A member of the RNA family "Guanidine-I riboswitch aptamer" from Profundibacterium mesophilum, 104 nucleotides long. Gene Ontology term of the family: regulation of gene expression. It scores 67 bits against the family's covariance model. Lineage of the source: Bacteria > Rhodobacterales > Roseobacteraceae > Profundibacterium > Profundibacterium mesophilum.
[Rfam]
RNA sequence: AUGCAGGAUGUCUAGGGUUCCGCCGCACAAGGGUCAGGUCCGAGAGAUAUCGUCAAUCCGGCAAAUUCCGGUGCGAUACACGGCGGGGAAAAAUCCCGGGAGGC
Numbered sequence: 001a002u003g004c005a006g007g008a009u010g011u012c013u014a015g016g017g018u019u020c021c022g023c024c025g026c027a028c029a030a031g032g033g034u035c036a037g038g039u040c041c042g043a044g045a046g047a048u049a050u051c052g053u054c055a056a057u058c059c060g061g062c063a064a065a066u067u068c069c070g071g072u073g074c075g076a077u078a079c080a081c082g083g084c085g086g087g088g089a090a091a092a093a094u095c096c097c098g099g100g101a102g103g104c
Stems, first nucleotide, its partner, number of pairs: 007051006015041002020038002022035001023032002052077003058071004079099001081102001085097003